[Rfam]
RNA sequence: GCCAUAAAAGCCACACCCAUCGUGAGAUGGGGUCGGAAAGCAACGGGUCUUGAAAUAUUCAAAUUGACUAUCAGCUAAAUAUUCUCCACGUGUGGAUAAGACAGCCGGGCUGCCGAGU
Numbered sequence: 001g002c003c004a005u006a007a008a009a010g011c012c013a014c015a016c017c018c019a020u021c022g023u024g025a026g027a028u029g030g031g032g033u034c035g036g037a038a039a040g041c042a043a044c045g046g047g048u049c050u051u052g053a054a055a056u057a058u059u060c061a062a063a064u065u066g067a068c069u070a071u072c073a074g075c076u077a078a079a080u081a082u083u084c085u086c087c088a089c090g091u092g093u094g095g096a097u098a099a100g101a102c103a104g105c106c107g108g109g110c111u112g113c114c115g116a117g118u
Base pairs, nucleotide, nucleotide: 001118003115011036012035016031017030018029019028020027021026034104039111040110041109044107045106046105047102048101049100050099051098052097

Rfam assigns this 118-nucleotide RNA sequence from an Olavius algarvensis Delta 1 endosymbiont to the family "c-di-GMP-I-GGC riboswitch aptamer". A search with the family's covariance model found it, with a score of 61 bits. Its family is annotated with cyclic-di-GMP binding in the Gene Ontology. Its Rfam clan is "c-di-GMP_I riboswitch clan". The source organism's lineage runs through Bacteria, delta/epsilon subdivisions and Deltaproteobacteria.